This 102-nucleotide sequence from Metabacillus litoralis belongs to the Rfam family "Purine riboswitch aptamer".
The base pairs follow the family's consensus structure, which is taken from published work.
NCBI's taxonomy places the organism under Bacteria, Bacilli, Caryophanales, Bacillaceae, Metabacillus.
About the family: Riboswitches are metabolite binding domains within certain messenger RNAs that serve as precision sensors for their corresponding targets.
RNA sequence: AUUAAAUAAGACGAAAUACAUCGUAUAAUAUUGGGGAUAUGGCCCAAAAGUUUCUACCAAGCUACCUUAAAUGGCUUGACUACGAAGUACUAAUAAAUAGGU
Number, nucleotide and partner (000 for none) at each position: 001a000002u000003u000004a000005a000006a000007u000008a000009a000010g000011a000012c000013g000014a000015a000016a000017u000018a088019c087020a000021u085022c084023g083024u082025a081026u000027a000028a000029u049030a000031u047032u046033g045034g044035g043036g000037a000038u000039a000040u000041g000042g000043c035044c034045c033046a032047a031048a000049a029050g000051u000052u000053u000054c000055u000056a000057c000058c078059a077060a076061g075062c074063u073064a072065c000066c000067u000068u000069a000070a000071a000072u064073g063074g062075c061076u060077u059078g058079a000080c000081u025082a024083c023084g022085a021086a000087g019088u018089a000090c000091u000092a000093a000094u000095a000096a000097a000098u000099a000100g000101g000102u000